[Rfam]
Background:
L31-Corynebacteriaceae ribosomal protein leader: a 63-nucleotide RNA from Corynebacterium sp. 805_CJEI. It is annotated as a cis-regulatory leader. Lineage of the source: Bacteria > Bacillati > Mycobacteriales > Corynebacteriaceae > Corynebacterium. The family is grouped with related families in Rfam's "Ribosomal Protein L31 Leader clan".

RNA sequence: ACUCAGGCACGAUUCUCCCGCUGUUAGCUGGGUGAAAGCGACCUGAAGUUCAAUCCUGAGGGA
Numbered sequence: 001a002c003u004c005a006g007g008c009a010c011g012a013u014u015c016u017c018c019c020g021c022u023g024u025u026a027g028c029u030g031g032g033u034g035a036a037a038g039c040g041a042c043c044u045g046a047a048g049u050u051c052a053a054u055c056c057u058g059a060g061g062g063a
Stems, first nucleotide, its partner, number of pairs: 001049003004045004013036003017032003